A member of the RNA family "Purine riboswitch aptamer" from Heyndrickxia sporothermodurans, 102 nucleotides long.
RNA sequence: AGUAUAAUUAACAACAUGUCUUGUAUAUGGUUAGGAAUAGGGCCUAAUCGUUUCUACCAAGCUGCCGUAAAUAGCUUGACUACAAGAAGUUGUUGUUCUACU
Numbered sequence: 001a002g003u004a005u006a007a008u009u010a011a012c013a014a015c016a017u018g019u020c021u022u023g024u025a026u027a028u029g030g031u032u033a034g035g036a037a038u039a040g041g042g043c044c045u046a047a048u049c050g051u052u053u054c055u056a057c058c059a060a061g062c063u064g065c066c067g068u069a070a071a072u073a074g075c076u077u078g079a080c081u082a083c084a085a086g087a088a089g090u091u092g093u094u095g096u097u098c099u100a101c102u
Stems, first nucleotide, its partner, number of pairs: 019087007029049007058078007
Lineage of the source: Bacteria > Bacillota > Caryophanales > Bacillaceae > Heyndrickxia.